[Rfam]
RNA sequence: AAAGCGCUCCGGGGUCGGUGGGAUUCCGAACCGGUGGUGACAGUCCACGAGCUGCGUGCGGGCCUCGGUCCGGACGUGGUUGACCCGGCGGAACUCCGGGACCGACGGUGAGAGUCCGGAUGGGAGGCGCGCUGG
Numbered sequence: 001a002a003a004g005c006g007c008u009c010c011g012g013g014g015u016c017g018g019u020g021g022g023a024u025u026c027c028g029a030a031c032c033g034g035u036g037g038u039g040a041c042a043g044u045c046c047a048c049g050a051g052c053u054g055c056g057u058g059c060g061g062g063c064c065u066c067g068g069u070c071c072g073g074a075c076g077u078g079g080u081u082g083a084c085c086c087g088g089c090g091g092a093a094c095u096c097c098g099g100g101a102c103c104g105a106c107g108g109u110g111a112g113a114g115u116c117c118g119g120a121u122g123g124g125a126g127g128c129g130c131g132c133u134g135g
Stems, first nucleotide, its partner, number of pairs: 003133005009127002016028003030115002032104002034048004043102002051080007084100005106118003
About this RNA
The record is a 135-nucleotide RNA sequence from Curtobacterium sp. Leaf261, which matches "FMN riboswitch aptamer (RFN element)" in Rfam. The match comes from Rfam's covariance-model search (83 bits).